A member of the RNA family "Xanthine riboswitch aptamer (NMT1 RNA)", 57 nucleotides long.

Nucleotides: 057
Base pairs, nucleotide, nucleotide: 006052007051008050009049010048015042018044019043021040022039023038024037025036026035
Number, partner (000 for none) and nucleotide at each position: 001000c002000u003000a004000c005000u006052g007051a008050g009049u010048a011000u012000a013000a014000g015042c016000g017000g018044u019043c020000a021040g022039c023038g024037u025036g026035a027000c028000a029000c030000c031000a032000g033000a034000u035026u036025c037024a038023c039022g040021c041000a042015g043019g044018a045000c046000a047000u048010u049009g050008c051007u052006c053000u054000a055000c056000a057000g
Annotation:
The literature on the family includes a 2020 paper in RNA by Yu and Breaker, "A bacterial riboswitch class senses xanthine and uric acid to regulate genes associated with purine oxidation". Rfam links the family to the GO term purine nucleobase binding.